[Rfam]
RNA sequence: CCCUGACAGACGCCUUUUGCGUCUGACAUAACCCACGACAGGAGAUAAUCAUG
Number, nucleotide and partner (000 for none) at each position: 001c000002c042003c041004u040005g039006a000007c025008a024009g023010a022011c021012g000013c000014c000015u000016u000017u000018u000019g000020c000021g011022u010023c009024u008025g007026a000027c000028a000029u000030a000031a000032c000033c000034c000035a000036c000037g000038a000039c005040a004041g003042g002043a000044g000045a000046u000047a000048a000049u000050c000051a000052u000053g000
This 53-nucleotide RNA belongs to the Rfam family "Mu-gpT-DE RNA". The family's RNA type in Rfam is small RNA.